[Rfam]
RNA sequence: CUGCGGCGCCGGAGUGAUCUACGACGGCGCCGUAGUUUUAGUGAAGUUCUGACUCAGAAGGUCGGUUCUUCAAUCUGGAAAUUUGAUGGCCAGCAGGAGCAACCGGGUGGGAGCCCGGAAACUAUCUGCGGGGUCCGUGGUGGCUUUACCUGAGUCGCUGCUUCAGAACUUGGGAAGUCAUGCUGCGGUUUCCACGCUGGUGGUGCCUCCUUACCGAAGGUGACCA
Number, nucleotide and partner (000 for none) at each position: 001c035002u034003g033004c032005g031006g030007c029008g028009c027010c026011g025012g000013a000014g022015u021016g000017a000018u000019c000020u000021a015022c014023g000024a000025c011026g010027g009028c008029g007030c006031c005032g004033u003034a002035g001036u000037u000038u000039u000040a000041g000042u000043g000044a000045a069046g068047u000048u000049c065050u064051g000052a062053c061054u060055c000056a000057g000058a000059a000060g054061g053062u052063c000064g050065g049066u000067u000068c046069u045070u000071c000072a000073a000074u000075c000076u000077g000078g000079a000080a000081a000082u000083u000084u000085g000086a000087u000088g000089g000090c000091c000092a000093g000094c000095a211096g210097g209098a208099g207100c205101a204102a000103c118104c117105g116106g115107g114108u000109g000110g000111g000112a000113g000114c107115c106116c105117g104118g103119a000120a000121a000122c203123u202124a201125u200126c199127u000128g197129c196130g195131g000132g193133g192134u000135c188136c187137g000138u000139g184140g183141u182142g181143g179144c177145u176146u175147u000148a000149c174150c173151u000152g000153a170154g169155u168156c166157g000158c000159u000160g000161c000162u000163u000164c000165a000166g156167a000168a155169c154170u153171u000172g000173g150174g149175a146176a145177g144178u000179c143180a000181u142182g141183c140184u139185g000186c000187g136188g135189u000190u000191u000192c133193c132194a000195c130196g129197c128198u000199g126200g125201u124202g123203g122204u101205g100206c000207c099208u098209c097210c096211u095212u000213a000214c000215c000216g000217a000218a000219g000220g000221u000222g000223a000224c000225c000226a000
RNA: sucA-II RNA